Bacterial RNase P class A: a 378-nucleotide sequence from Jannaschia seosinensis. Ribonuclease P (RNase P) is a ubiquitous endoribonuclease, found in archaea, bacteria and eukarya as well as chloroplasts and mitochondria. NCBI's taxonomy places the organism under Bacteria, Pseudomonadota, Alphaproteobacteria, Rhodobacterales, Jannaschia. The family's consensus secondary structure is taken from published work.
RNA sequence: GCGGGGGGCCGGGCGGCCGCGGAAGGCGACUUCCGAGGAAAGUCCGGACUCCACGAAGCGACGGUGCCGGGUAACGCCCGGACGGCGAAAGCCGAUGGAAAGCGCCACAGAAAACAAACCACCGGGGAUCCGUCCCCGGCCAGGGUGAAACGGUGGGGUAAGAGCCCACCGGGGAGGCGGCAACGUCUCCCGCACGGCAAGCCCCACCGGGAGCAAUGCCGAAUAGGGACCGCGCGCGUCUGCGACGGCGCAGGGACGCUUCGUCCCGGCGGUCCGGGUUGGCAGCUCGAGGCCGCGAAGCAAUUCGCGGUCCAGAUGAAUGGUCGCCACCGAAGGGAACCUUCGGGACAAAAUCCGGCUUACAGGCCCCCCGCACAU
Numbered sequence: 001g002c003g004g005g006g007g008g009c010c011g012g013g014c015g016g017c018c019g020c021g022g023a024a025g026g027c028g029a030c031u032u033c034c035g036a037g038g039a040a041a042g043u044c045c046g047g048a049c050u051c052c053a054c055g056a057a058g059c060g061a062c063g064g065u066g067c068c069g070g071g072u073a074a075c076g077c078c079c080g081g082a083c084g085g086c087g088a089a090a091g092c093c094g095a096u097g098g099a100a101a102g103c104g105c106c107a108c109a110g111a112a113a114a115c116a117a118a119c120c121a122c123c124g125g126g127g128a129u130c131c132g133u134c135c136c137c138g139g140c141c142a143g144g145g146u147g148a149a150a151c152g153g154u155g156g157g158g159u160a161a162g163a164g165c166c167c168a169c170c171g172g173g174g175a176g177g178c179g180g181c182a183a184c185g186u187c188u189c190c191c192g193c194a195c196g197g198c199a200a201g202c203c204c205c206a207c208c209g210g211g212a213g214c215a216a217u218g219c220c221g222a223a224u225a226g227g228g229a230c231c232g233c234g235c236g237c238g239u240c241u242g243c244g245a246c247g248g249c250g251c252a253g254g255g256a257c258g259c260u261u262c263g264u265c266c267c268g269g270c271g272g273u274c275c276g277g278g279u280u281g282g283c284a285g286c287u288c289g290a291g292g293c294c295g296c297g298a299a300g301c302a303a304u305u306c307g308c309g310g311u312c313c314a315g316a317u318g319a320a321u322g323g324u325c326g327c328c329a330c331c332g333a334a335g336g337g338a339a340c341c342u343u344c345g346g347g348a349c350a351a352a353a354u355c356c357g358g359c360u361u362a363c364a365g366g367c368c369c370c371c372c373g374c375a376c377a378u
Base pairs, nucleotide, nucleotide: 001374002373003372004371005370006369007368008367009366010365011363012328013327014326015325016324017323018322020035021034022033023032024031025030040361041360042359044358045357046356047355048354049213050212051211052210058261060259062209063208064207065206066205067081068080069079070078071077082096083094084093085092086091097204098203102202103201104198105197106196119144120143122139123138124137125136126135127134128133152170153169154168155167156166157165171193172191173190174189175188176187177186178185179184217284218283219282220281227275228274229273230272231271232270253267254266255265256264257263292311293310294309295308296307297306298305299304